[Rfam]
RNA sequence: UGGUAGAUGCACCCUGAUUAAAUUUUAACCUCAGUCGAUUUAUUGGCUGAGGUUCUUUAUU
Numbered sequence: 001u002g003g004u005a006g007a008u009g010c011a012c013c014c015u016g017a018u019u020a021a022a023u024u025u026u027a028a029c030c031u032c033a034g035u036c037g038a039u040u041u042a043u044u045g046g047c048u049g050a051g052g053u054u055c056u057u058u059a060u061u
Base pairs, nucleotide, nucleotide: 002013003012004011028053029052030051031050032049033048034047035046036045037044038043
Background:
The record is a 61-nucleotide RNA from Calothrix sp. PCC 6303, which matches "Nitrogen stress-induced RNA 1" in Rfam. The family's RNA type in Rfam is small RNA. On this family, see Ionescu et al., J Mol Biol 2010: "Heterocyst-specific transcription of NsiR1, a non-coding RNA encoded in a tandem array of direct repeats in cyanobacteria". The match comes from Rfam's covariance-model search (49 bits). The base pairs follow the family's consensus structure.